Description:
Shown here is a 111-nucleotide RNA from Cyphomyrmex costatus, a member of the family "R2 RNA element". The organism belongs to Cyphomyrmex, within Eukaryota. The match comes from Rfam's covariance-model search (48 bits). This family represents the 3' UTR region of the R2 retrotransposable element. This family is known to interact with the R2-encoded reverse transcriptase in a reaction known as target primed reverse transcription (TPRT). Pairs were carried over by alignment from the consensus structure, which is taken from published work.
RNA sequence: CGGAGGGGUUUUAGUCGGUAGGCGUCGUCGGUUAGGUUCGCCUGACCGGCGGUGAAUCCGACACUCUCCGGGGGCGGUUCCCCCGGGGGUCUUUGGAAGAUUUCCCCUUCG
Numbered sequence: 001c002g003g004a005g006g007g008g009u010u011u012u013a014g015u016c017g018g019u020a021g022g023c024g025u026c027g028u029c030g031g032u033u034a035g036g037u038u039c040g041c042c043u044g045a046c047c048g049g050c051g052g053u054g055a056a057u058c059c060g061a062c063a064c065u066c067u068c069c070g071g072g073g074g075c076g077g078u079u080c081c082c083c084c085g086g087g088g089g090u091c092u093u094u095g096g097a098a099g100a101u102u103u104c105c106c107c108u109u110c111g
Base pairs, nucleotide, nucleotide: 001111002110003109004108005107006106007105008104014062015061016060017059018058023054024053025052026051027050028049032045033044034043035042036041064089065088066087067086068085